[Rfam]
MicC RNA: a 120-nucleotide RNA sequence. Its family is annotated with sRNA-mediated gene silencing and mRNA binding in the Gene Ontology. For this family Rfam cites "A bioinformatics based approach to discover small RNA genes in the Escherichia coli genome" (Chen et al., Biosystems, 2002). Rfam classes the family as a small RNA. Rfam describes the family as follows. MicC (previously known as IS063) is located between the ompN and ydbK genes in E. coli. This family of Hfq-associated sRNA is thought to be a regulator of OmpC expression.

RNA sequence: CGUGUUAUAUGCCUUUAUUGUCACGUUUUAUUUUUCGUUGGUAUAUUGAUGGUAAUUAUUAAUUAGCCAGCGAAUAAAUUGACAAGCCCGAACAACUGUUCGGGCUUUUUUUUGGUUCCA
Dot-bracket structure: ......(((((....)).)))...............((((((.......................)))))).........((.((((((((((....))))))))))))...........